The family of this 100-nucleotide sequence from Microbacterium paludicola is "Glycine riboswitch aptamer". It scores 38 bits against the family's covariance model. The base pairs follow the family's consensus structure.
[Rfam]
RNA sequence: GCCACUCUGAAAAGCGGAGCCCACGCUCCCGCCGACGGUGAAAGACGACACGUCCUCGGGCGUUCGCCGAAACUCUCAGGUCCAUGACAGAGGGGGAGUU
Dot-bracket structure: .((.(((((......((((......)))).(((((..(.(...(.......................)....).))).)))......))))).)).....
Numbered sequence: 001g002c003c004a005c006u007c008u009g010a011a012a013a014g015c016g017g018a019g020c021c022c023a024c025g026c027u028c029c030c031g032c033c034g035a036c037g038g039u040g041a042a043a044g045a046c047g048a049c050a051c052g053u054c055c056u057c058g059g060g061c062g063u064u065c066g067c068c069g070a071a072a073c074u075c076u077c078a079g080g081u082c083c084a085u086g087a088c089a090g091a092g093g094g095g096g097a098g099u100u
Stems, first nucleotide, its partner, number of pairs: 002095002005092005016029004031081003034077002038075001040073001044068001
Overview
Taxonomically the source falls in Microbacterium (Bacteria, Bacillati, Actinomycetes, Microbacteriaceae). On this family, see Mandal et al., Science 2004: "A glycine-dependent riboswitch that uses cooperative binding to control gene expression".